RNA sequence: CUUGGUUAUGGUGACAUGUACCCGCAGACGUGGUCAGGCAUGCUGGUGGGAGCGCUCUGUGCCCUGGCUGGGGUGCUGACAAUAGCCAUGCCUGUGCCUGUCAUUGUCAACAAC
Numbered sequence: 001c002u003u004g005g006u007u008a009u010g011g012u013g014a015c016a017u018g019u020a021c022c023c024g025c026a027g028a029c030g031u032g033g034u035c036a037g038g039c040a041u042g043c044u045g046g047u048g049g050g051a052g053c054g055c056u057c058u059g060u061g062c063c064c065u066g067g068c069u070g071g072g073g074u075g076c077u078g079a080c081a082a083u084a085g086c087c088a089u090g091c092c093u094g095u096g097c098c099u100g101u102c103a104u105u106g107u108c109a110a111c112a113a114c
Stems, first nucleotide, its partner, number of pairs: 002113001004111001008107004013102004018097004037077004049063002